[Rfam]
The family of this 84-nucleotide RNA sequence from Bombyx mori is "mir-2807 microRNA precursor family". For this family Rfam cites "Novel microRNAs in silkworm (Bombyx mori)" (Cai et al., Funct Integr Genomics, 2010). Lineage of the source: Eukaryota > Protostomia > Hexapoda > Eumetabola > Bombyx. The family has 8 seed sequences and 5,120 matches in Rfam 15.1.
Nucleotides: 084
Stems, first nucleotide, its partner, number of pairs: 008078009018068001020066001022064007035051002039047002
Number, partner (000 for none) and nucleotide at each position: 001000u002000u003000a004000a005000c006000u007000c008078g009077a010076a011075u012074u013073u014072g015071u016070a017000u018068g019000c020066a021000g022064u023063u024062g025061g026060a027059a028058c029000u030000u031000u032000u033000g034000a035051u036050u037000a038000c039047g040046u041000u042000u043000g044000c045000c046040g047039c048000u049000a050036g051035g052000g053000g054000c055000g056000c057000u058028g059027u060026u061025c062024c063023a064022a065000a066020u067000g068018c069000a070016u071015a072014c073013a074012a075011a076010u077009u078008u079000g080000a081000g082000u083000u084000a